The record is a 149-nucleotide RNA sequence from Pseudomonas putida, which matches "PrrF RNA" in Rfam. Rfam's curators write: PrrF RNA is a small RNA involved in iron homeostasis and is found exclusively in Pseudomonas species.
RNA sequence: UUGACGGCUAAAUGAGAAUUGUUAUGAUUAUCACAACUGGUCGCGAGACUGGUUGGAUAAGCUAAGAGCCCCUGGUUCGGACUCUCAGAUUAUCUCCUCAUCAGGCUAAUCACGGUUAUUGACCCGGCAAUUUGCCGGGUCUUUUUUUG
Numbered sequence: 001u002u003g004a005c006g007g008c009u010a011a012a013u014g015a016g017a018a019u020u021g022u023u024a025u026g027a028u029u030a031u032c033a034c035a036a037c038u039g040g041u042c043g044c045g046a047g048a049c050u051g052g053u054u055g056g057a058u059a060a061g062c063u064a065a066g067a068g069c070c071c072c073u074g075g076u077u078c079g080g081a082c083u084c085u086c087a088g089a090u091u092a093u094c095u096c097c098u099c100a101u102c103a104g105g106c107u108a109a110u111c112a113c114g115g116u117u118a119u120u121g122a123c124c125c126g127g128c129a130a131u132u133u134g135c136c137g138g139g140u141c142u143u144u145u146u147u148u149g
Stems, first nucleotide, its partner, number of pairs: 034055009062088002065085004070079001096105003121141008
Rfam's curators put it in the seed alignment.
The family's RNA type in Rfam is small RNA.
On this family, see Wilderman et al., Proc Natl Acad Sci U S A 2004: "Identification of tandem duplicate regulatory small RNAs in Pseudomonas aeruginosa involved in iron homeostasis".